The record is a 289-nucleotide RNA sequence from Paenibacillus mucilaginosus, which matches "glmS glucosamine-6-phosphate activated ribozyme aptamer" in Rfam.
About the family: This entry contains a glucosamine-6-phosphate activated ribozyme that is found in the mRNA for GlmS. GlmS is an enzyme that uses fructose-6-phosphate and glutamine to generate glucosamine-6-phosphate.
A search with the family's covariance model found it, with a score of 66 bits.
[Rfam]
RNA sequence: UCGGUUCGACAAGCGCCAGAACUGGAUCCGUCUUUGUCCUGGGUACGUUUUUUUUGCUGCGUUUCGGUCUUCGAGUCUGCUUCUACGGCACUAAGCCGGCGGGAGCGGCCUCCAACUUAUUCCCUAGACGGCGCAGGAUUAAUCGACUGCAGGAACUGACCAUCCAGUUGACGAGGUGAAGGUGUUCGAAAUAUUCGGCGGGGGCCUUCCGGGAUCGAUCCAUUCCGUACAAGUCGAAGAGCAAAACGUCCGGGCGACCGGGCCGACAAGAAUUCGACGGGAUCUGCAG
Numbered sequence: 001u002c003g004g005u006u007c008g009a010c011a012a013g014c015g016c017c018a019g020a021a022c023u024g025g026a027u028c029c030g031u032c033u034u035u036g037u038c039c040u041g042g043g044u045a046c047g048u049u050u051u052u053u054u055u056g057c058u059g060c061g062u063u064u065c066g067g068u069c070u071u072c073g074a075g076u077c078u079g080c081u082u083c084u085a086c087g088g089c090a091c092u093a094a095g096c097c098g099g100c101g102g103g104a105g106c107g108g109c110c111u112c113c114a115a116c117u118u119a120u121u122c123c124c125u126a127g128a129c130g131g132c133g134c135a136g137g138a139u140u141a142a143u144c145g146a147c148u149g150c151a152g153g154a155a156c157u158g159a160c161c162a163u164c165c166a167g168u169u170g171a172c173g174a175g176g177u178g179a180a181g182g183u184g185u186u187c188g189a190a191a192u193a194u195u196c197g198g199c200g201g202g203g204g205c206c207u208u209c210c211g212g213g214a215u216c217g218a219u220c221c222a223u224u225c226c227g228u229a230c231a232a233g234u235c236g237a238a239g240a241g242c243a244a245a246a247c248g249u250c251c252g253g254g255c256g257a258c259c260g261g262g263c264c265g266a267c268a269a270g271a272a273u274u275c276g277a278c279g280g281g282a283u284c285u286g287c288a289g
Base pairs, nucleotide, nucleotide: 020169021168022167023166024165025164026163027162178209179208180207181206182205186198187197188196189195210227211226212225213224214223215222233278234277235276236275237274238273248263249262250261251260252259253258